[Rfam]
RNA sequence: GAAUAUCAUCAGAAAUACGGACAACAGCUGUCGUGAGAAGUCAGCAGAAGCCAUAGUAGAUGAUAGCAACGAGCUGAAAAAAAAGAGAGAUAUUCAGAGGUCUCACAAAUCAUUGAAGGGC
Numbered sequence: 001g002a003a004u005a006u007c008a009u010c011a012g013a014a015a016u017a018c019g020g021a022c023a024a025c026a027g028c029u030g031u032c033g034u035g036a037g038a039a040g041u042c043a044g045c046a047g048a049a050g051c052c053a054u055a056g057u058a059g060a061u062g063a064u065a066g067c068a069a070c071g072a073g074c075u076g077a078a079a080a081a082a083a084a085g086a087g088a089g090a091u092a093u094u095c096a097g098a099g100g101u102c103u104c105a106c107a108a109a110u111c112a113u114u115g116a117a118g119g120g121c
Stems, first nucleotide, its partner, number of pairs: 001028001004023001006021002011016001041048002050121003059114006
The family of this 121-nucleotide RNA from Williamwhitmania taraxaci is "Group II catalytic intron D1-D4-1".
Its family is annotated with Group II intron splicing in the Gene Ontology.
A reference for the family is Lehmann and Schmidt (2003), "Group II introns: structure and catalytic versatility of large natural ribozymes", Crit Rev Biochem Mol Biol.
Taxonomically the source falls in Williamwhitmania (Bacteria, Bacteroidia, Bacteroidales, Williamwhitmaniaceae).
A search with the family's covariance model found it, with a score of 45 bits.